This 89-nucleotide RNA sequence from Cuscuta europaea belongs to the Rfam family "Small nucleolar RNA R11/Z151". A reference for the family is Barneche et al. (2001), "Identification of 66 box C/D snoRNAs in Arabidopsis thaliana: extensive gene duplications generated multiple isoforms predicting new ribosomal RNA 2'-O-methylation sites", J Mol Biol. It scores 76 bits against the family's covariance model. Pairs were carried over by alignment from the consensus structure, which was predicted with PFOLD. Gene Ontology terms of the family: nucleolus and RNA processing. Lineage of the source: Eukaryota > Viridiplantae > lamiids > Cuscuteae > Cuscuta subgen. Cuscuta.
[Rfam]
RNA sequence: GGGUUGAUGAUGAGGACAUGAAUAAUCUUAGCGGAUUUCAGUGAGAUGGUUCUUCAUCUAUGAUCUGAUUGUUACACACACUGAAGCCC
Numbered sequence: 001g002g003g004u005u006g007a008u009g010a011u012g013a014g015g016a017c018a019u020g021a022a023u024a025a026u027c028u029u030a031g032c033g034g035a036u037u038u039c040a041g042u043g044a045g046a047u048g049g050u051u052c053u054u055c056a057u058c059u060a061u062g063a064u065c066u067g068a069u070u071g072u073u074a075c076a077c078a079c080a081c082u083g084a085a086g087c088c089c
Stems, first nucleotide, its partner, number of pairs: 001089005